[Rfam]
RNA sequence: AGAUGAAGUAUGAUAAUGUCCACAGAAAUUGAAUUGGGCCUUUAAGCCUGCCCUAUCUGAUGUCAUUUGGCUUUGAUUUGGGGGCAUAAUCGGCAGCAAAACA
Number, nucleotide and partner (000 for none) at each position: 001a000002g000003a000004u000005g000006a000007a000008g021009u000010a019011u018012g000013a000014u000015a000016a000017u000018g011019u010020c000021c008022a000023c000024a000025g000026a000027a000028a000029u000030u000031g000032a000033a000034u000035u000036g087037g000038g085039c084040c083041u000042u000043u000044a000045a000046g077047c000048c075049u000050g071051c070052c069053c000054u000055a000056u000057c000058u000059g000060a000061u000062g000063u000064c000065a000066u000067u000068u000069g052070g051071c050072u000073u000074u000075g048076a000077u046078u000079u000080g000081g000082g000083g040084g039085c038086a000087u036088a000089a000090u000091c000092g000093g000094c000095a000096g000097c000098a000099a000100a000101a000102c000103a000
RNA: Small nucleolar RNA snoR100
Organism: Rhododendron simsii